[Rfam]
This 107-nucleotide sequence from Geotrypetes seraphini belongs to the Rfam family "mir-16 microRNA precursor family".
The family is grouped with related families in Rfam's "mir-15 clan".
A search with the family's covariance model found it, with a score of 42 bits.
Rfam 15.1 lists 4,705 matches to the family in 758 species.
Lineage of the source: Eukaryota > Tetrapoda > Amphibia > Dermophiidae > Geotrypetes.
Nucleotides: 107
Stems, first nucleotide, its partner, number of pairs: 001107003005103003010100001011097008021087001023085006030078016
Number, partner (000 for none) and nucleotide at each position: 001107a002106a003105g004000a005103u006102g007101c008000u009000u010100u011097a012096g013095c014094a015093g016092c017091u018090c019000a020000g021087u022000a023085a024084a025083u026082g027081a028080u029000a030078g031077a032076a033075g034074g035073a036072u037071g038070u039069u040068g041067c042066a043065a044064a045063u046000g047000g048000u049000a050000g051000g052000a053000a054000a055000u056000u057000c058000c059000u060000a061000c062000c063045a064044u065043u066042u067041g068040c069039a070038a071037c072036a073035u074034c075033c076032u077031u078030c079000c080028a081027u082026c083025a084024u085023u086000u087021g088000c089000u090018g091017a092016g093015c094014u095013g096012c097011u098000a099000a100010a101007g102006c103005a104000u105003c106002u107001u